[Rfam]
RNA sequence: CAUUCCCACGAUUAAAAUUCCCGUCCUGUUAGCGAAAGCUAGGAUAGCAUAACGAACACGUAAUGGUGAAGUGGUAAAGGCAGACCGUGGCACUUAUAAGUUAUGA
Numbered sequence: 001c002a003u004u005c006c007c008a009c010g011a012u013u014a015a016a017a018u019u020c021c022c023g024u025c026c027u028g029u030u031a032g033c034g035a036a037a038g039c040u041a042g043g044a045u046a047g048c049a050u051a052a053c054g055a056a057c058a059c060g061u062a063a064u065g066g067u068g069a070a071g072u073g074g075u076a077a078a079g080g081c082a083g084a085c086c087g088u089g090g091c092a093c094u095u096a097u098a099a100g101u102u103a104u105g106a
Base pairs, nucleotide, nucleotide: 006090007089008088009087010086023085024084026083027082028081029080030041031040032039033038048105049104050103051102052101053100057068058067059066069095070094071093072092073091
The family of this 106-nucleotide RNA is "EGFOA RNA". The sequence is in the family's curated seed alignment.